[Rfam]
RNA sequence: AUGCCAAUGAUGGAUACCUAGAUUUUCCUGAGAAUAAUGAUGUUGUCAAAGGAACCACUGAUGGCAU
Dot-bracket structure: (((((.........................................................)))))
RNA: Small nucleolar RNA SNORD42
Organism: Phascolarctos cinereus